[Rfam]
RNA sequence: UCGAAUACUAUUCCUUAUCACUUCUCUAUACCCAGUUAGAUAUUUAAAAAAGUGAAAAUAUGACAUCAGAAAAAAACAUUUUUCAUUUAAUUGGACGGAGAAUUGAUAAGGGCUUGUAUUAGA
Numbered sequence: 001u002c003g004a005a006u007a008c009u010a011u012u013c014c015u016u017a018u019c020a021c022u023u024c025u026c027u028a029u030a031c032c033c034a035g036u037u038a039g040a041u042a043u044u045u046a047a048a049a050a051a052g053u054g055a056a057a058a059u060a061u062g063a064c065a066u067c068a069g070a071a072a073a074a075a076a077c078a079u080u081u082u083u084c085a086u087u088u089a090a091u092u093g094g095a096c097g098g099a100g101a102a103u104u105g106a107u108a109a110g111g112g113c114u115u116g117u118a119u120u121a122g123a
Stems, first nucleotide, its partner, number of pairs: 012112009022102006031094002
RNA: mir-184 microRNA precursor family
Organism: Brachionus calyciflorus